RNA: Small nucleolar RNA snR191
RNA sequence: UGCCAUUGCUAAGUCAAGGCUUCUCCUGCGUCUUCAUGUCGCGUUAUUCACUAUGGGAGAUGGUCUGUUACAGCUCUGGCAGAUUGACGCUAGUUCGCGCCGAACUUCUUUCUGAAGCUAGGCUGAUUGGCUUUCGUUUUGAGAGCCUCUCGUUAAGAACCAAGCUGUGUUCUGUUUUUGAGUUGAGUCCUGCUUCCGCUCUCGAAGUGGCAUCAUAGCCGGUCUCUUAGUAACAUUUCACACAUUC
Numbered sequence: 001u002g003c004c005a006u007u008g009c010u011a012a013g014u015c016a017a018g019g020c021u022u023c024u025c026c027u028g029c030g031u032c033u034u035c036a037u038g039u040c041g042c043g044u045u046a047u048u049c050a051c052u053a054u055g056g057g058a059g060a061u062g063g064u065c066u067g068u069u070a071c072a073g074c075u076c077u078g079g080c081a082g083a084u085u086g087a088c089g090c091u092a093g094u095u096c097g098c099g100c101c102g103a104a105c106u107u108c109u110u111u112c113u114g115a116a117g118c119u120a121g122g123c124u125g126a127u128u129g130g131c132u133u134u135c136g137u138u139u140u141g142a143g144a145g146c147c148u149c150u151c152g153u154u155a156a157g158a159a160c161c162a163a164g165c166u167g168u169g170u171u172c173u174g175u176u177u178u179u180g181a182g183u184u185g186a187g188u189c190c191u192g193c194u195u196c197c198g199c200u201c202u203c204g205a206a207g208u209g210g211c212a213u214c215a216u217a218g219c220c221g222g223u224c225u226c227u228u229a230g231u232a233a234c235a236u237u238u239c240a241c242a243c244a245u246u247c
Stems, first nucleotide, its partner, number of pairs: 003079003017066005022060005028042003032038001090164002093160004099123003103119001105117004125151002130146007167241003173235003185226003192219003196210001198208003